The family of this 587-nucleotide part of an RNA from Sediminispirochaeta smaragdinae is "Bacterial large subunit ribosomal RNA".
Taxonomically the source falls in Sediminispirochaeta smaragdinae (Bacteria, Pseudomonadati, Spirochaetia, Spirochaetales).
The family is grouped with related families in Rfam's "LSU clan".
Gene Ontology terms of the family: ribosome and structural constituent of ribosome.
A search with the family's covariance model found it, with a score of 2846 bits.
The family's consensus secondary structure is taken from published work.
[Rfam]
RNA sequence: CCCGUAGUUAGACGGAAAGACCCCGUGAACCUUUACUGUAGCUUGGCAUUGAAAUCUGGACUAACAUGUGUAGGAUAGGUGGGAGGCUGAGAAGCAUGGUCGUUAGGCUGUGUGGAGCCGUUGGUGAAAUACCACCCUUGUUAGUUUAGGUUUCUAACGGUGUCCAUGAAACUGGAUAACGGACAAUGUCAGGUGGGCAGUUUGACUGGGGCGGUCGCCUCCCAAAGAGUAACGGAGGCGCGCGAAGGUCACCUCACACUGGUUGGAAAUCAGUGCGCGAGUGUAAAGGCACAAGGUGGCUUGACUGCGAGACAAACAAGUCGAGCAGGUACGAAAGUAGGUCUUAGUGAUCUGGCGGUAGCGUGUGGAAGCGCCGUCACUUAACGGAUAAAAGGUACUCCGGGGAUAACAGGCUGAUCCUGCCCAAGAGUUCAUAUCGACGGCAGGGUUUGGCACCUCGAUGUCGGCUCAUCGCAUCCUGGGGCUGGAGCAGGUCCCAAGGGUUUGGCUGUUCGCCAAUUAAAGCGGUACGCGAGCUGGGUUCAGAACGUCGCGAGACAGUUCGGUCCCUAUCUGCUACGGGCGUU
Numbered sequence: 001c002c003c004g005u006a007g008u009u010a011g012a013c014g015g016a017a018a019g020a021c022c023c024c025g026u027g028a029a030c031c032u033u034u035a036c037u038g039u040a041g042c043u044u045g046g047c048a049u050u051g052a053a054a055u056c057u058g059g060a061c062u063a064a065c066a067u068g069u070g071u072a073g074g075a076u077a078g079g080u081g082g083g084a085g086g087c088u089g090a091g092a093a094g095c096a097u098g099g100u101c102g103u104u105a106g107g108c109u110g111u112g113u114g115g116a117g118c119c120g121u122u123g124g125u126g127a128a129a130u131a132c133c134a135c136c137c138u139u140g141u142u143a144g145u146u147u148a149g150g151u152u153u154c155u156a157a158c159g160g161u162g163u164c165c166a167u168g169a170a171a172c173u174g175g176a177u178a179a180c181g182g183a184c185a186a187u188g189u190c191a192g193g194u195g196g197g198c199a200g201u202u203u204g205a206c207u208g209g210g211g212c213g214g215u216c217g218c219c220u221c222c223c224a225a226a227g228a229g230u231a232a233c234g235g236a237g238g239c240g241c242g243c244g245a246a247g248g249u250c251a252c253c254u255c256a257c258a259c260u261g262g263u264u265g266g267a268a269a270u271c272a273g274u275g276c277g278c279g280a281g282u283g284u285a286a287a288g289g290c291a292c293a294a295g296g297u298g299g300c301u302u303g304a305c306u307g308c309g310a311g312a313c314a315a316a317c318a319a320g321u322c323g324a325g326c327a328g329g330u331a332c333g334a335a336a337g338u339a340g341g342u343c344u345u346a347g348u349g350a351u352c353u354g355g356c357g358g359u360a361g362c363g364u365g366u367g368g369a370a371g372c373g374c375c376g377u378c379a380c381u382u383a384a385c386g387g388a389u390a391a392a393a394g395g396u397a398c399u400c401c402g403g404g405g406a407u408a409a410c411a412g413g414c415u416g417a418u419c420c421u422g423c424c425c426a427a428g429a430g431u432u433c434a435u436a437u438c439g440a441c442g443g444c445a446g447g448g449u450u451u452g453g454c455a456c457c458u459c460g461a462u463g464u465c466g467g468c469u470c471a472u473c474g475c476a477u478c479c480u481g482g483g484g485c486u487g488g489a490g491c492a493g494g495u496c497c498c499a500a501g502g503g504u505u506u507g508g509c510u511g512u513u514c515g516c517c518a519a520u521u522a523a524a525g526c527g528g529u530a531c532g533c534g535a536g537c538u539g540g541g542u543u544c545a546g547a548a549c550g551u552c553g554c555g556a557g558a559c560a561g562u563u564c565g566g567u568c569c570c571u572a573u574c575u576g577c578u579a580c581g582g583g584c585g586u587u
Base pairs, nucleotide, nucleotide: 001583002582003581004580005579006578007577008576010575011574012573014570015569022404023403024402025401027400028399029396030395031394032393033392035201036200037199038198042193043192044191045190046189047188048187051154052153053152054151055150056149057148058147059146060145061144062143063142064141065140066139068137078136079135080134081133082132085119086118087117094113095112096111097110098109099108100107101106158181159180161178162177163176164175165174166173204216205215206214207213217239218238219237220236221235222234240385242342243341248300249299250298251297252296253295254280255279257275258274259273260272261271262270281290282289305328306327307326308325311322312321313320330339331338332337353379354378355377356376357375358374359373361372362371413454414453415452417451418448419447420446421445422444423443424442428438429437465540466538467537468536469535470532471529472528473527474526475525478503479502481498482497483496484495485494486493505519506518507517508516509515546564547563548562549561550559551558552557